The record is a 182-nucleotide RNA sequence from Alkalicella caledoniensis, which matches "Lysine riboswitch aptamer" in Rfam.

RNA sequence: GGGUGAGGUAGAGGCGCGAUGUCUAUAAGUAACCCAAAUGAAGUCGGAAGCUUAUGAUUUUAGGUAAAAGGAGCCAUCGCCGAAGUUUGAGGAACCAAAACCUCAAGCUGGACCUACAUCGAAAAGGUGUAGGGCUGUCAACGUAGUGAUUGCCAGUUACACGUUGGAGUGCUAUCUCGUCA
Numbered sequence: 001g002g003g004u005g006a007g008g009u010a011g012a013g014g015c016g017c018g019a020u021g022u023c024u025a026u027a028a029g030u031a032a033c034c035c036a037a038a039u040g041a042a043g044u045c046g047g048a049a050g051c052u053u054a055u056g057a058u059u060u061u062a063g064g065u066a067a068a069a070g071g072a073g074c075c076a077u078c079g080c081c082g083a084a085g086u087u088u089g090a091g092g093a094a095c096c097a098a099a100a101c102c103u104c105a106a107g108c109u110g111g112a113c114c115u116a117c118a119u120c121g122a123a124a125a126g127g128u129g130u131a132g133g134g135c136u137g138u139c140a141a142c143g144u145a146g147u148g149a150u151u152g153c154c155a156g157u158u159a160c161a162c163g164u165u166g167g168a169g170u171g172c173u174a175u176c177u178c179g180u181c182a
Stems, first nucleotide, its partner, number of pairs: 006177006016080006023073002032065003036061003084109009110136002113133008138167007
A reference for the family is Mandal et al. (2003), "Riboswitches Control Fundamental Biochemical Pathways in Bacillus subtilis and Other Bacteria", Cell.